[Rfam]
RNA sequence: GGUUUUCGUUGGUAUAAAUCCAAUUAUCUGAAUUUAAGAUGCUAAGAAAUUCUCCAUUGGUAAGAAAUGGUUAUCCAUUAAGUGGAGAAAAUCUUUU
Numbered sequence: 001g002g003u004u005u006u007c008g009u010u011g012g013u014a015u016a017a018a019u020c021c022a023a024u025u026a027u028c029u030g031a032a033u034u035u036a037a038g039a040u041g042c043u044a045a046g047a048a049a050u051u052c053u054c055c056a057u058u059g060g061u062a063a064g065a066a067a068u069g070g071u072u073a074u075c076c077a078u079u080a081a082g083u084g085g086a087g088a089a090a091a092u093c094u095u096u097u
Stems, first nucleotide, its partner, number of pairs: 009023004052087004056078002059075005
The record is a 97-nucleotide RNA from Nicotiana tabacum, which matches "Plastid-rps12 3UTR RNA" in Rfam. The family has 1,299 seed sequences and 1,710 matches in Rfam 15.1. The base pairs follow the family's consensus structure, which was predicted with LocARNA. The family's RNA type in Rfam is cis-regulatory element. A search with the family's covariance model found it, with a score of 100 bits. From the family's description: Plastid rpl20 is a non-coding RNA (ncRNA) recognised in plastids. It was found in the three prime untranslated region (3UTR) of rps12 gene, its 3UTR location sugest a role in transcript maduration.